[Rfam]
RNA: Streptomyces sRNA 4677
Organism: Streptomyces sp. MMG1121
RNA sequence: UGACCCGGCGGCGCCCGACACCAAAGACCAAAGAACCGGGGAAAGGACCAAUCCCGCCCCCAUCGCCCCCGUCGCUCACUCGCCGGAGUGAAUAUGCCCAACGCAACUGGCGCGACGGGGCAGUUGUGGUGCAGCGUCGGCAACGACAGCAAGUCCAGACAUGCAUCGGCCCUCGCCGGGACGGCAAUCCCAGUGCGAGGGCCUGAUCACCGAGGAAGAAGCGCUUCCCG
Numbered sequence: 001u002g003a004c005c006c007g008g009c010g011g012c013g014c015c016c017g018a019c020a021c022c023a024a025a026g027a028c029c030a031a032a033g034a035a036c037c038g039g040g041g042a043a044a045g046g047a048c049c050a051a052u053c054c055c056g057c058c059c060c061c062a063u064c065g066c067c068c069c070c071g072u073c074g075c076u077c078a079c080u081c082g083c084c085g086g087a088g089u090g091a092a093u094a095u096g097c098c099c100a101a102c103g104c105a106a107c108u109g110g111c112g113c114g115a116c117g118g119g120g121c122a123g124u125u126g127u128g129g130u131g132c133a134g135c136g137u138c139g140g141c142a143a144c145g146a147c148a149g150c151a152a153g154u155c156c157a158g159a160c161a162u163g164c165a166u167c168g169g170c171c172c173u174c175g176c177c178g179g180g181a182c183g184g185c186a187a188u189c190c191c192a193g194u195g196c197g198a199g200g201g202c203c204u205g206a207u208c209a210c211c212g213a214g215g216a217a218g219a220a221g222c223g224c225u226u227c228c229c230g
Base pairs, nucleotide, nucleotide: 001209002208010067011066012065013064076091077090078089079088080087081086107140108139109138110137111136112135113134168203169202170201171200172199174197175196176195178191179190180189181188214228215227216226217225218224
Dot-bracket structure: ((.......((((..................................................))))........((((((....))))))...............(((((((....................)))))))...........................(((((.(((.((((......))))...))).)))))....))....(((((.....)))))..